Annotation: Rfam assigns this 147-nucleotide RNA sequence from Glycine max to the family "MIR4371 microRNA precursor family". The match comes from Rfam's covariance-model search (116 bits). Its family is annotated with RISC complex and miRNA-mediated post-transcriptional gene silencing in the Gene Ontology. Lineage of the source: Eukaryota > Embryophyta > fabids > Papilionoideae > Glycine subgen. Soja.

Nucleotides: 147
Stems, first nucleotide, its partner, number of pairs: 002144013017129007026120005032114015048098002051095002055091004059076005
Number, partner (000 for none) and nucleotide at each position: 001000c002144c003143a004142u005141u006140a007139a008138g009137u010136g011135a012134u013133g014132a015000c016000a017129u018128g019127g020126c021125a022124g023123a024000u025000u026120g027119a028118g029117u030116g031000u032114c033113a034112c035111g036110u037109c038108a039107u040106c041105a042104u043103g044102c045101c046100u047000u048098g049097u050000c051095a052094c053000u054000a055091a056090c057089a058088u059076g060075u061074c062073a063072u064000u065000g066000a067000a068000g069000g070000g071000g072063g073062u074061g075060a076059c077000g078000u079000g080000a081000c082000a083000a084000u085000a086000a087000g088058g089057u090056g091055u092000c093000u094052g095051u096000a097049a098048c099000u100046a101045g102044g103043u104042g105041u106040g107039a108038u109037g110036a111035u112034g113033u114032g115000u116030c117029a118028c119027u120026u121000u122000u123023u124022c125021u126020g127019u128018c129017a130000c131000a132014u133013c134012a135011u136010c137009a138008c139007u140006u141005a142004a143003u144002g145000a146000a147000a